[Rfam]
RNA sequence: UGGGCUUCAUUUGUUUGCGAUCUUCAUGAUUUGGCUUACACUAAAGUUUUAAUUUAUGUGUGGCUAUACUUGAAUGAAGCCCAGAAAGUUGUUCUCCUCGCUAUCCAGUGCUUCCUUCAUGUUGCAUUUAGGACGUCGGGGAACUAAAUUC
Numbered sequence: 001u002g003g004g005c006u007u008c009a010u011u012u013g014u015u016u017g018c019g020a021u022c023u024u025c026a027u028g029a030u031u032u033g034g035c036u037u038a039c040a041c042u043a044a045a046g047u048u049u050u051a052a053u054u055u056a057u058g059u060g061u062g063g064c065u066a067u068a069c070u071u072g073a074a075u076g077a078a079g080c081c082c083a084g085a086a087a088g089u090u091g092u093u094c095u096c097c098u099c100g101c102u103a104u105c106c107a108g109u110g111c112u113u114c115c116u117u118c119a120u121g122u123u124g125c126a127u128u129u130a131g132g133a134c135g136u137c138g139g140g141g142a143a144c145u146a147a148a149u150u151c
Stems, first nucleotide, its partner, number of pairs: 001084001003081003008076006016068001018060002025058005031052002091144007099135002104133003108129001114121001